[Rfam]
About this RNA:
This 75-nucleotide RNA sequence from Streptomyces avermitilis belongs to the Rfam family "ASpks TB sRNA". The organism belongs to Streptomyces avermitilis, within Bacteria. The family's RNA type in Rfam is antisense RNA. Pairs were carried over by alignment from the consensus structure, which is taken from published work.
RNA sequence: CUUGACCGAGCCGAGCCACAGCGGCUCGUCCCCGGCCCGGUCCUGGCCGUAGGUGGCCAGCAGGGCCCCCGCCUC
Numbered sequence: 001c002u003u004g005a006c007c008g009a010g011c012c013g014a015g016c017c018a019c020a021g022c023g024g025c026u027c028g029u030c031c032c033c034g035g036c037c038c039g040g041u042c043c044u045g046g047c048c049g050u051a052g053g054u055g056g057c058c059a060g061c062a063g064g065g066c067c068c069c070c071g072c073c074u075c
Stems, first nucleotide, its partner, number of pairs: 014026004031071001038065001043060003047056003